[Rfam]
RNA: RNase MRP
RNA sequence: GGAUGAGGAGGCGAUGUGAUUGGGUCCAUAUGGGCUCAGGAAAGUCCCCGGGCCUUAACUGCAGCGAUGCAGCCUUGGUAACAAGGAACUUGUAGCAAUGAUUCGACCAUAAUGGGCUGAGACAUGUGUGGAGCCUAGAAUCUAGCACAAGGUGUUGGCCAAUUUCACAGCUCAUUCACAUGGUCCUCGUGACUAACUGAACGGGGCUUAUGCCCUCCUCAUC
Numbered sequence: 001g002g003a004u005g006a007g008g009a010g011g012c013g014a015u016g017u018g019a020u021u022g023g024g025u026c027c028a029u030a031u032g033g034g035c036u037c038a039g040g041a042a043a044g045u046c047c048c049c050g051g052g053c054c055u056u057a058a059c060u061g062c063a064g065c066g067a068u069g070c071a072g073c074c075u076u077g078g079u080a081a082c083a084a085g086g087a088a089c090u091u092g093u094a095g096c097a098a099u100g101a102u103u104c105g106a107c108c109a110u111a112a113u114g115g116g117c118u119g120a121g122a123c124a125u126g127u128g129u130g131g132a133g134c135c136u137a138g139a140a141u142c143u144a145g146c147a148c149a150a151g152g153u154g155u156u157g158g159c160c161a162a163u164u165u166c167a168c169a170g171c172u173c174a175u176u177c178a179c180a181u182g183g184u185c186c187u188c189g190u191g192a193c194u195a196a197c198u199g200a201a202c203g204g205g206g207c208u209u210a211u212g213c214c215c216u217c218c219u220c221a222u223c
Stems, first nucleotide, its partner, number of pairs: 002223010014181006022037006042209003046206004060071004073086005089152003092148002097143001101141004114136004124129001183193003